RNA sequence: CGGAAGCUUCCCUAGGGUUCCGCGGCGACCGCCUUGCGCGGCAGCCGGCCUGGACCGAGAGGGAAGGCGCGAUCCCGAUAGGGAUGCGCACACGGAGGGAUAGAAGCCCGGGAGCA
Numbered sequence: 001c002g003g004a005a006g007c008u009u010c011c012c013u014a015g016g017g018u019u020c021c022g023c024g025g026c027g028a029c030c031g032c033c034u035u036g037c038g039c040g041g042c043a044g045c046c047g048g049c050c051u052g053g054a055c056c057g058a059g060a061g062g063g064a065a066g067g068c069g070c071g072a073u074c075c076c077g078a079u080a081g082g083g084a085u086g087c088g089c090a091c092a093c094g095g096a097g098g099g100a101u102a103g104a105a106g107c108c109c110g111g112g113a114g115c116a
Stems, first nucleotide, its partner, number of pairs: 007066006015056002020053002022050001023047004067089005073083002091111001093114001097109003